[Rfam]
RNA: RtT RNA
Organism: Pantoea alhagi
RNA sequence: UUGCUAUGCGUAAUCGGCAGGAUGAGAACCUGCCGCAGGUUCGGGCCGAGCGAAGCGAGACAACGUUGCCAGCGGCAACGGCCCGAAGGGCGAGGCGAAGCCGAGUUAUCCUGCACGACCCACCA
Numbered sequence: 001u002u003g004c005u006a007u008g009c010g011u012a013a014u015c016g017g018c019a020g021g022a023u024g025a026g027a028a029c030c031u032g033c034c035g036c037a038g039g040u041u042c043g044g045g046c047c048g049a050g051c052g053a054a055g056c057g058a059g060a061c062a063a064c065g066u067u068g069c070c071a072g073c074g075g076c077a078a079c080g081g082c083c084c085g086a087a088g089g090g091c092g093a094g095g096c097g098a099a100g101c102c103g104a105g106u107u108a109u110c111c112u113g114c115a116c117g118a119c120c121c122a123c124c125a
Base pairs, nucleotide, nucleotide: 017114018113019112020111021110023108034092035091040087041086042085043084047057048056064080065079066078067077068076069075